RNA sequence: GAUUGCGGUGAUGACCCAACAUAUUCAAGCUCAACAGACCGGAAUGCAGGCGUCUCUGUUUCUGGAGGUGCUUGCGUGUCGAUACACCCGCUGAACUGAGCGAUC
Numbered sequence: 001g002a003u004u005g006c007g008g009u010g011a012u013g014a015c016c017c018a019a020c021a022u023a024u025u026c027a028a029g030c031u032c033a034a035c036a037g038a039c040c041g042g043a044a045u046g047c048a049g050g051c052g053u054c055u056c057u058g059u060u061u062c063u064g065g066a067g068g069u070g071c072u073u074g075c076g077u078g079u080c081g082a083u084a085c086a087c088c089c090g091c092u093g094a095a096c097u098g099a100g101c102g103a104u105c
Stems, first nucleotide, its partner, number of pairs: 001105006